A member of the RNA family "MIR2670 microRNA precursor family" from Medicago truncatula, 205 nucleotides long. The organism belongs to Medicago, within Eukaryota. The family's consensus secondary structure was predicted with RNAalifold. It scores 162 bits against the family's covariance model.
RNA sequence: UUUGGGGGAAGUAGUGGUUCGUUGGGUUGGGAAAAAAGACAUUAUCUCUUGAGGUAAAAUUAGGUUUGUUUCCUUUUACUCCCAAAAUCUUUUUAUCGUGGGUAAAAAGAAUCACCAUGAGGUAUAAAAUGAACCAAAUUUAAAUUUAACUCAAGGGAUCUUGAUGUCGUUUUUCCAAACAGGACGGAUCAUUAUUUUCCUCAAA
Numbered sequence: 001u002u003u004g005g006g007g008g009a010a011g012u013a014g015u016g017g018u019u020c021g022u023u024g025g026g027u028u029g030g031g032a033a034a035a036a037a038g039a040c041a042u043u044a045u046c047u048c049u050u051g052a053g054g055u056a057a058a059a060u061u062a063g064g065u066u067u068g069u070u071u072c073c074u075u076u077u078a079c080u081c082c083c084a085a086a087a088u089c090u091u092u093u094u095a096u097c098g099u100g101g102g103u104a105a106a107a108a109g110a111a112u113c114a115c116c117a118u119g120a121g122g123u124a125u126a127a128a129a130u131g132a133a134c135c136a137a138a139u140u141u142a143a144a145u146u147u148a149a150c151u152c153a154a155g156g157g158a159u160c161u162u163g164a165u166g167u168c169g170u171u172u173u174u175c176c177a178a179a180c181a182g183g184a185c186g187g188a189u190c191a192u193u194a195u196u197u198u199c200c201u202c203a204a205a
Stems, first nucleotide, its partner, number of pairs: 003203021026180003030176006041165004045158003049154005055148004060143009070133003074129003077124004082119001089109009